[Rfam]
This 102-nucleotide RNA from Schnuerera ultunensis belongs to the Rfam family "Purine riboswitch aptamer".
The base pairs follow the family's consensus structure, which is taken from published work.
It scores 83 bits against the family's covariance model.
RNA sequence: AAUAAAAAUGAAUAUAAAGCUCAUAUAAUUCUCAUAAUAUGGUUGAGAAGUUUCUACGAAAUGACCGUAAAUCAUUUAGCUAUGGGCGAAAGUGUACCUAGG
Numbered sequence: 001a002a003u004a005a006a007a008a009u010g011a012a013u014a015u016a017a018a019g020c021u022c023a024u025a026u027a028a029u030u031c032u033c034a035u036a037a038u039a040u041g042g043u044u045g046a047g048a049a050g051u052u053u054c055u056a057c058g059a060a061a062u063g064a065c066c067g068u069a070a071a072u073c074a075u076u077u078a079g080c081u082a083u084g085g086g087c088g089a090a091a092g093u094g095u096a097c098c099u100a101g102g
Stems, first nucleotide, its partner, number of pairs: 019087007029049006059077006